[Rfam]
RNA sequence: AAAUAUCACUUGUUGUUAUUUUUGGUCAAUAACACAAUGACACGUAAGAUAAUUUUUUUACGUGUCAUUGUGUUAUUAGUCGAAGAUAGCAAAUCAAUGAUAUUC
Numbered sequence: 001a002a003a004u005a006u007c008a009c010u011u012g013u014u015g016u017u018a019u020u021u022u023u024g025g026u027c028a029a030u031a032a033c034a035c036a037a038u039g040a041c042a043c044g045u046a047a048g049a050u051a052a053u054u055u056u057u058u059u060a061c062g063u064g065u066c067a068u069u070g071u072g073u074u075a076u077u078a079g080u081c082g083a084a085g086a087u088a089g090c091a092a093a094u095c096a097a098u099g100a101u102a103u104u105c
Base pairs, nucleotide, nucleotide: 002104003103004102005101012094013092014091015090016089017088018087019086021084022083023082024081025080026079028077029076030075031074032073033072034071035070036069037068038067039066040065041064042063043062044061045060046059047058048057049056
Dot-bracket structure: .((((......((((((((.((((((.((((((((((((((((((((((......)))))))))))))))))))))).)))))).))))))).)......)))).

MIR6274 microRNA precursor family: a 105-nucleotide sequence from Prunus armeniaca. The family's consensus secondary structure was predicted with RNAalifold. The match comes from Rfam's covariance-model search (82 bits).